Purine riboswitch aptamer: a 102-nucleotide RNA from Tepidibacter thalassicus. Pairs were carried over by alignment from the consensus structure, which is taken from published work.
RNA sequence: UAAGUUAGAAAAAAAUUCGCUCAUAUAUCCUCGGUAAUAGGGACCGAGAGUAUCUACCGGGAAACCGUAAAUUUCCUGACUAUGAGUGAAAUUAUUAUAGGU
Numbered sequence: 001u002a003a004g005u006u007a008g009a010a011a012a013a014a015a016u017u018c019g020c021u022c023a024u025a026u027a028u029c030c031u032c033g034g035u036a037a038u039a040g041g042g043a044c045c046g047a048g049a050g051u052a053u054c055u056a057c058c059g060g061g062a063a064a065c066c067g068u069a070a071a072u073u074u075c076c077u078g079a080c081u082a083u084g085a086g087u088g089a090a091a092u093u094a095u096u097a098u099a100g101g102u
Stems, first nucleotide, its partner, number of pairs: 018088008030048006058078007